[Rfam]
RNA sequence: UGCUCGACGCCUGGAACUUUGACUCAACCUUAGUGUGCUGUGCGUAGGUGAGCAAAGUUUCAGGUGUUCGAGCGC
Numbered sequence: 001u002g003c004u005c006g007a008c009g010c011c012u013g014g015a016a017c018u019u020u021g022a023c024u025c026a027a028c029c030u031u032a033g034u035g036u037g038c039u040g041u042g043c044g045u046a047g048g049u050g051a052g053c054a055a056a057g058u059u060u061c062a063g064g065u066g067u068u069c070g071a072g073c074g075c
Stems, first nucleotide, its partner, number of pairs: 002073006008066007016058005023052004028048003
Source information: A member of the RNA family "mir-87 microRNA precursor family" from Enterobius vermicularis, 75 nucleotides long. Pairs were carried over by alignment from the consensus structure, which was predicted with RNAalifold. The literature on the family includes a 2003 paper in Dev Biol by Sempere et al., "Temporal regulation of microRNA expression in Drosophila melanogaster mediated by hormonal signals and broad-Complex gene activity".